[Rfam]
RNA sequence: CACCCAUCCAGAGCGGCCGAGAGACCUGGCUCGACGACGCCGCAGCAACCGCCCGCGCAGGGCAGGUGCUCCCGCCAGGGCCGAUGGAGG
Number, nucleotide and partner (000 for none) at each position: 001c090002a000003c000004c087005c086006a085007u084008c083009c000010a000011g000012a000013g043014c042015g041016g040017c039018c000019g000020a000021g032022a031023g030024a000025c000026c078027u077028g076029g075030c023031u022032c021033g000034a000035c000036g000037a000038c000039g017040c016041c015042g014043c013044a070045g069046c068047a067048a000049c066050c065051g063052c062053c061054c060055g000056c000057g000058c000059a000060g054061g053062g052063c051064a000065g050066g049067u047068g046069c045070u044071c000072c000073c000074g082075c029076c028077a027078g026079g000080g000081c000082c074083g008084a007085u006086g005087g004088a000089g000090g001

SAM riboswitch aptamer (S box leader): a 90-nucleotide RNA from Quadrisphaera sp. DSM 44207. Taxonomically the source falls in Quadrisphaera (Bacteria, Bacillati, Actinomycetes, Kineosporiales). From the family's description: The SAM riboswitch is found upstream of a number of genes which code for proteins involved in methionine or cysteine biosynthesis in Gram-positive bacteria.